[Rfam]
Shown here is a 58-nucleotide RNA from Salmo salar, a member of the family "mir-194 microRNA precursor family". Gene Ontology terms of the family: RISC complex and miRNA-mediated post-transcriptional gene silencing.
RNA sequence: UGUAACAGCAACUCCAUGUGGAAGUUGCCUGUGUUCCAGUGGAGAUGCUGUUACCUGC
Numbered sequence: 001u002g003u004a005a006c007a008g009c010a011a012c013u014c015c016a017u018g019u020g021g022a023a024g025u026u027g028c029c030u031g032u033g034u035u036c037c038a039g040u041g042g043a044g045a046u047g048c049u050g051u052u053a054c055c056u057g058c
Stems, first nucleotide, its partner, number of pairs: 002054008012044006019038003
Dot-bracket structure: .((((((((..((((((.(((..............)))))))))..))))))))....